[Rfam]
RNA sequence: ACCUGGGGUAGAGGUGCUGUAAUUAAUAGUACUCAUUUUGAGCAGCCAAGCUAUGAAAAAAGAGGAAAGGGAUUAUAGCCGAAGAAAGCAAUGUGGCAAGUUGUUUUCUGGCUUUAUAUAUAACAUAUGUAAAGUUGUCACUGUUUAUGGUGGAGAGCUACAGAGGUC
Numbered sequence: 001a002c003c004u005g006g007g008g009u010a011g012a013g014g015u016g017c018u019g020u021a022a023u024u025a026a027u028a029g030u031a032c033u034c035a036u037u038u039u040g041a042g043c044a045g046c047c048a049a050g051c052u053a054u055g056a057a058a059a060a061a062g063a064g065g066a067a068a069g070g071g072a073u074u075a076u077a078g079c080c081g082a083a084g085a086a087a088g089c090a091a092u093g094u095g096g097c098a099a100g101u102u103g104u105u106u107u108c109u110g111g112c113u114u115u116a117u118a119u120a121u122a123a124c125a126u127a128u129g130u131a132a133a134g135u136u137g138u139c140a141c142u143g144u145u146u147a148u149g150g151u152g153g154a155g156a157g158c159u160a161c162a163g164a165g166g167u168c
Stems, first nucleotide, its partner, number of pairs: 008161004016079009032064003036060004083109010110136011138153006
The record is a 168-nucleotide RNA sequence from Clostridium tetanomorphum, which matches "Lysine riboswitch aptamer" in Rfam. Rfam describes the family as follows. Riboswitches are metabolite binding domains within certain messenger RNAs that serve as precision sensors for their corresponding targets. The base pairs follow the family's consensus structure, which is taken from published work. The match comes from Rfam's covariance-model search (104 bits).